[Rfam]
RNA sequence: UUCAAACUCUAGCAGUACAUUUGUAUUUAUGCAAUACAUAGCAAUACAAAUAAUGUACUGCUCGAGUUUGAA
Number, nucleotide and partner (000 for none) at each position: 001u072002u071003c070004a000005a068006a067007c066008u000009c000010u065011a062012g061013c060014a059015g058016u057017a056018c055019a000020u052021u000022u048023g047024u046025a000026u000027u000028u000029a000030u000031g000032c000033a000034a000035u000036a000037c000038a000039u000040a000041g000042c000043a000044a000045u000046a024047c023048a022049a000050a000051u000052a020053a000054u000055g018056u017057a016058c015059u014060g013061c012062u011063c000064g000065a010066g007067u006068u005069u000070g003071a002072a001
Shown here is a 72-nucleotide sequence from Diabrotica virgifera, a member of the family "mir-16 microRNA precursor family". The family has 14 seed sequences and 4,705 matches in Rfam 15.1. Lineage of the source: Eukaryota > Allotriocarida > Coleoptera > Diabroticina > Diabrotica virgifera. Gene Ontology terms of the family: RISC complex and miRNA-mediated post-transcriptional gene silencing.